The family of this 155-nucleotide RNA sequence from Artemisia annua is "U4 spliceosomal RNA".
Lineage of the source: Eukaryota > Streptophytina > Spermatophyta > campanulids > Artemisia.
Pairs were carried over by alignment from the consensus structure, which is taken from published work.
Its Rfam clan is "U4 clan".
[Rfam]
RNA sequence: AUCUUUGCGCUUGGGGCAAUGACGCAGCUAAUGAGGUAAUAACCGAGGCGCGUCAAUUGCUGGUUGAAAACUAUUUCCAAACCCCCUCCUCGGUCUUGGUUCUGCCUUGACCGUCGAGAAUUUCUGGAAGGGUUCCCUUUUAUUAGGGUAAAACC
Numbered sequence: 001a002u003c004u005u006u007g008c009g010c011u012u013g014g015g016g017c018a019a020u021g022a023c024g025c026a027g028c029u030a031a032u033g034a035g036g037u038a039a040u041a042a043c044c045g046a047g048g049c050g051c052g053u054c055a056a057u058u059g060c061u062g063g064u065u066g067a068a069a070a071c072u073a074u075u076u077c078c079a080a081a082c083c084c085c086c087u088c089c090u091c092g093g094u095c096u097u098g099g100u101u102c103u104g105c106c107u108u109g110a111c112c113g114u115c116g117a118g119a120a121u122u123u124c125u126g127g128a129a130g131g132g133u134u135c136c137c138u139u140u141u142a143u144u145a146g147g148g149u150a151a152a153a154c155c
Stems, first nucleotide, its partner, number of pairs: 021054005027049003035044003086118003091113005098106002131155004
It scores 104 bits against the family's covariance model.